[Rfam]
RNA sequence: AUAAGAUGCAGAUGGAAACAUGCUGUAUACCUGACGCACCGAAUUAACGUUUAAGCGAGAUGUAAGCUCGCCGGAGUUGGGGAGCCACGAUGUGGCUUUUUCUUUUAG
Numbered sequence: 001a002u003a004a005g006a007u008g009c010a011g012a013u014g015g016a017a018a019c020a021u022g023c024u025g026u027a028u029a030c031c032u033g034a035c036g037c038a039c040c041g042a043a044u045u046a047a048c049g050u051u052u053a054a055g056c057g058a059g060a061u062g063u064a065a066g067c068u069c070g071c072c073g074g075a076g077u078u079g080g081g082g083a084g085c086c087a088c089g090a091u092g093u094g095g096c097u098u099u100u101u102c103u104u105u106u107a108g
Base pairs, nucleotide, nucleotide: 007027008026009025010024011023012021013020014019030081031080032079033078034077035076039074040073041072042051043050044049055071056070057069058068059067082098083097084096085095086094087093088092
A member of the RNA family "DUF3800-I RNA", 108 nucleotides long. Pairs were carried over by alignment from the consensus structure, which is taken from published work. Rfam's curators write: Actinobacteria, Firmicutes, Fusobacteria, Proteobacteria (1 example), Tenericutes (2 examples). By type it is a small RNA.